[Rfam]
Nucleotides: 068
Base pairs, nucleotide, nucleotide: 006063007062008061009060010059011058012057016053017052018051020049021048022047023046024045025044026043028041
Number, partner (000 for none) and nucleotide at each position: 001000g002000u003000a004000a005000c006063a007062c008061u009060c010059a011058a012057a013000a014000a015000a016053u017052g018051g019000c020049g021048g022047c023046a024045c025044u026043u027000c028041c029000c030000u031000u032000c033000g034000u035000a036000g037000a038000a039000c040000a041028g042000a043026a044025a045024g046023u047022g048021c049020c050000c051018c052017c053016a054000c055000a056000g057012u058011u059010u060009g061008a062007g063006u064000a065000c066000c067000a068000c
Shown here is a 68-nucleotide sequence from Balaenoptera musculus, a member of the family "mir-290 microRNA precursor family". NCBI's taxonomy places the organism under Eukaryota, Deuterostomia, Vertebrata, Euteleostomi, Balaenoptera. Rfam links the family to the GO terms miRNA-mediated post-transcriptional gene silencing and RISC complex. The match comes from Rfam's covariance-model search (53 bits). The literature on the family includes a 2004 paper in Dev Biol by Suh et al., "Human embryonic stem cells express a unique set of microRNAs".